[Rfam]
RNA sequence: CUGCUAUAUAUAUAUACUACCCUGUAGCCACUAUGAGUUACGAUAAUUACUAUGUUAAUUUACGAGUUUAUAGUAACUCCAUACUAAGUGGUUUACUGUAACGUUAUAGUAAAUAUCUCCAUGUGUUAUAGUAACCCAACUAUCGUAAAUAUGUAUUGACAUUAUCGUAAAUUAGUAUAUGAAAUUAUCGUAAAUGGAGGUGGCUACGGAAUAACUUAUUUUGUAGCAG
Numbered sequence: 001c002u003g004c005u006a007u008a009u010a011u012a013u014a015u016a017c018u019a020c021c022c023u024g025u026a027g028c029c030a031c032u033a034u035g036a037g038u039u040a041c042g043a044u045a046a047u048u049a050c051u052a053u054g055u056u057a058a059u060u061u062a063c064g065a066g067u068u069u070a071u072a073g074u075a076a077c078u079c080c081a082u083a084c085u086a087a088g089u090g091g092u093u094u095a096c097u098g099u100a101a102c103g104u105u106a107u108a109g110u111a112a113a114u115a116u117c118u119c120c121a122u123g124u125g126u127u128a129u130a131g132u133a134a135c136c137c138a139a140c141u142a143u144c145g146u147a148a149a150u151a152u153g154u155a156u157u158g159a160c161a162u163u164a165u166c167g168u169a170a171a172u173u174a175g176u177a178u179a180u181g182a183a184a185u186u187a188u189c190g191u192a193a194a195u196g197g198a199g200g201u202g203g204c205u206a207c208g209g210a211a212u213a214a215c216u217u218a219u220u221u222u223g224u225a226g227c228a229g
Base pairs, nucleotide, nucleotide: 001229002228003227004226005225006224007223008222010220012219013218014217018213019212022209023208024207025206026205027204028203029202030201031200032199034197038193039192040191041190042189043188044187045186046185047184048183051179052178053177054176055175056174057173058172059171060170061169062168063167066166068164070162071161075156082147083146084145088143089142090141091140092139093138094133095132096131097130098129099128100127101126102125103124104123108118109117
A member of the RNA family "MIR6217 microRNA precursor family" from Miscanthus lutarioriparius, 229 nucleotides long. Lineage of the source: Eukaryota > Viridiplantae > Mesangiospermae > Andropogoneae > Miscanthus. It scores 169 bits against the family's covariance model.